Nucleotides: 431
Base pairs, nucleotide, nucleotide: 024055025053026052027051028050029049035042036041065072066071076103077102078101079100086094087093106329107328108327109326114155115154116153117152118151120149121146122145124143125142126141127140128139129138160270161269162267163266164265165264169261170260174254175253176252177251184242186240187239188238189237190236194210196209197208198207199206213217220230221229279300280299281298282297283296284295285294306323307322308321309320310319363370364369386397387396388395389394
Number, partner (000 for none) and nucleotide at each position: 001000c002000g003000a004000c005000c006000u007000c008000a009000g010000a011000u012000c013000a014000g015000a016000c017000g018000a019000g020000a021000u022000u023000a024055c025053c026052c027051g028050c029049u030000a031000a032000a033000u034000u035042u036041a037000a038000g039000c040000a041036u042035a043000u044000c045000a046000a047000u048000a049029a050028g051027c052026g053025g054000u055024g056000g057000a058000a059000a060000a061000g062000a063000a064000a065072c066071g067000a068000a069000a070000a071066c072065g073000a074000a075000u076103u077102c078101u079100c080000c081000a082000a083000g084000u085000a086094g087093c088000g089000g090000c091000g092000a093087g094086c095000g096000a097000a098000a099000c100079g101078a102077g103076a104000a105000a106329a107328g108327u109326c110000c111000a112000u113000a114155c115154a116153c117152c118151g119000a120149a121146g122145u123000c124143g125142g126141c127140g128139a129138g130000c131000a132000g133000u134000g135000c136000u137000g138129u139128u140127c141126g142125u143124c144000a145122a146121c147000a148000g149120u150000g151118u152117g153116g154115u155114g156000u157000u158000a159000a160270a161269g162267g163266u164265g165264u166000c167000g168000u169261u170260g171000c172000a173000u174254g175253u176252g177251c178000u179000g180000a181000g182000a183000u184242c185000a186240g187239u188238u189237c190236g191000u192000a193000g194210g195000c196209u197208c198207c199206c200000u201000u202000g203000a204000u205000u206199g207198g208197g209196g210194c211000u212000u213217c214000a215000g216000a217213g218000c219000g220230g221229g222000u223000g224000c225000a226000g227000g228000a229221c230220c231000c232000a233000u234000a235000a236190c237189g238188a239187a240186c241000g242184g243000u244000c245000u246000u247000u248000u249000g250000u251177g252176c253175a254174u255000g256000g257000u258000g259000u260170c261169g262000c263000g264165g265164c266163g267162c268000u269161u270160u271000g272000u273000c274000g275000a276000g277000u278000c279300g280299g281298g282297u283296u284295g285294c286000u287000u288000g289000a290000g291000a292000c293000u294285g295284c296283a297282g298281c299280c300279c301000a302000a303000a304000g305000c306323g307322g308321g309320u310319g311000g312000u313000a314000a315000a316000u317000c318000u319310c320309a321308c322307c323306c324000a325000a326109g327108a328107c329106u330000a331000a332000a333000u334000a335000u336000u337000c338000g339000u340000a341000c342000g343000a344000g345000a346000c347000c348000g349000a350000u351000a352000g353000c354000g355000a356000a357000c358000a359000a360000g361000u362000a363370c364369c365000g366000c367000g368000a369364g370363g371000g372000a373000a374000a375000g376000u377000u378000g379000a380000a381000a382000a383000g384000a385000a386397c387396u388395c389394u390000g391000a392000a393000g394389a395388g396387a397386g398000a399000g400000u401000u402000c403000a404000a405000c406000a407000g408000g409000a410000c411000g412000u413000g414000a415000a416000a417000c418000c419000g420000u421000u422000g423000a424000c425000a426000g427000g428000c429000a430000a431000a